[Rfam]
RNA sequence: UCGUUAUCCAGAGCGGCGGAGGGACUGGCCCGAUGAAGCCCGGCAACCCGCCCGUUUUUUCACUGUUGUGAAAAAGCGGGUAUGGUGCCAAUUCCUGCAACGCGUGCAGCGCGUUGAGAGAUAAGGA
Numbered sequence: 001u002c003g004u005u006a007u008c009c010a011g012a013g014c015g016g017c018g019g020a021g022g023g024a025c026u027g028g029c030c031c032g033a034u035g036a037a038g039c040c041c042g043g044c045a046a047c048c049c050g051c052c053c054g055u056u057u058u059u060u061c062a063c064u065g066u067u068g069u070g071a072a073a074a075a076g077c078g079g080g081u082a083u084g085g086u087g088c089c090a091a092u093u094c095c096u097g098c099a100a101c102g103c104g105u106g107c108a109g110c111g112c113g114u115u116g117a118g119a120g121a122u123a124a125g126g127a
Stems, first nucleotide, its partner, number of pairs: 001127002004124005013041001015040003021031003025097001027095002042089004047085002050081012093119001098116006
A member of the RNA family "SAM riboswitch aptamer (S box leader)" from Marinithermofilum abyssi, 127 nucleotides long. The match comes from Rfam's covariance-model search (86 bits).